Description
The family of this 94-nucleotide sequence from Sorghum bicolor is "MIR5387 microRNA precursor family". Lineage of the source: Eukaryota > Tracheophyta > Andropogonodae > Andropogoneae > Sorghum. Rfam 15.1 lists 1,029 matches to the family in 9 species. Rfam links the family to the GO terms miRNA-mediated post-transcriptional gene silencing and RISC complex.
RNA sequence: UUGUAACACGAACCGGUACUAAAGGGUCUUUGCCCCGACAAUACUUAUCAGUAGCCGUUGGGCAGGUCCCUUUAGCACCGGUUCGUGUUACGAA
Dot-bracket structure: ..(((((((((((((((.((((((((..((...(((.((.....((...)).....)).)))..)).)))))))).)))))))))))))))...
Numbered sequence: 001u002u003g004u005a006a007c008a009c010g011a012a013c014c015g016g017u018a019c020u021a022a023a024g025g026g027u028c029u030u031u032g033c034c035c036c037g038a039c040a041a042u043a044c045u046u047a048u049c050a051g052u053a054g055c056c057g058u059u060g061g062g063c064a065g066g067u068c069c070c071u072u073u074a075g076c077a078c079c080g081g082u083u084c085g086u087g088u089u090a091c092g093a094a
Stems, first nucleotide, its partner, number of pairs: 003091015019075008029066002034062003038058002045051002